RNA sequence: AAUUCCCUGCUGUGUGCGUGAUGAUAUGGCGUUUCAUAUGAGCCAACGUAUGAACGAAAGGGAAUCCGGUCUCUGGAUGUGGCAUAUACGCCUCAUGACGAGGACAUAUAAAACAUUCAGGAGGAUACCCACCUGCUGAGGGCAGGUUCAUUGAGGCCAUGGACACGGCACGGUGGGGAUGUA
Dot-bracket structure: ...((((((((((((.(((..............(((..((((((...............(((.((((...(..(((((((.....((...((((.....))))..)).....))))))))..)))).)))..............)))))).)))..........)))))))))))))))....
Numbered sequence: 001a002a003u004u005c006c007c008u009g010c011u012g013u014g015u016g017c018g019u020g021a022u023g024a025u026a027u028g029g030c031g032u033u034u035c036a037u038a039u040g041a042g043c044c045a046a047c048g049u050a051u052g053a054a055c056g057a058a059a060g061g062g063a064a065u066c067c068g069g070u071c072u073c074u075g076g077a078u079g080u081g082g083c084a085u086a087u088a089c090g091c092c093u094c095a096u097g098a099c100g101a102g103g104a105c106a107u108a109u110a111a112a113a114c115a116u117u118c119a120g121g122a123g124g125a126u127a128c129c130c131a132c133c134u135g136c137u138g139a140g141g142g143c144a145g146g147u148u149c150a151u152u153g154a155g156g157c158c159a160u161g162g163a164c165a166c167g168g169c170a171c172g173g174u175g176g177g178g179a180u181g182u183a
Stems, first nucleotide, its partner, number of pairs: 004179012017167003034154003039150006060130003064126004071120001074119007086107002091103004